[Rfam]
THF (Tetrahydrofolate) riboswitch aptamer: a 97-nucleotide RNA from Sporobacter termitidis. A reference for the family is Ames et al. (2010), "A eubacterial riboswitch class that senses the coenzyme tetrahydrofolate", Chem Biol. A search with the family's covariance model found it, with a score of 87 bits.
RNA sequence: GGCAGAGUAGGAUACCUUGCGUAAAGUGCCGACUGGACGGGGAGUUGUCAGUUGGACGAAGGAUUUAUCCACGGUUUGGUGUCCGCAUCCCGCUGCU
Numbered sequence: 001g002g003c004a005g006a007g008u009a010g011g012a013u014a015c016c017u018u019g020c021g022u023a024a025a026g027u028g029c030c031g032a033c034u035g036g037a038c039g040g041g042g043a044g045u046u047g048u049c050a051g052u053u054g055g056a057c058g059a060a061g062g063a064u065u066u067a068u069c070c071a072c073g074g075u076u077u078g079g080u081g082u083c084c085g086c087a088u089c090c091c092g093c094u095g096c097u
Base pairs, nucleotide, nucleotide: 001097002096003095004094005093010084011083012082013081014080015079016078019075020073021072022071026057027056029055030054031053032052033051034050035049036048040090041089042088044086061070062069063068

NCBI's taxonomy places the organism under Bacteria, Bacillota, Oscillospiraceae, Sporobacter, Sporobacter termitidis. Tetrahydrofolate (THF) riboswitch was first reported for Ames et al. as an RNA motif in 5' untranslated (5'-UTR)regions of folate transport and biosynthesis genes in Firmicutes genomes.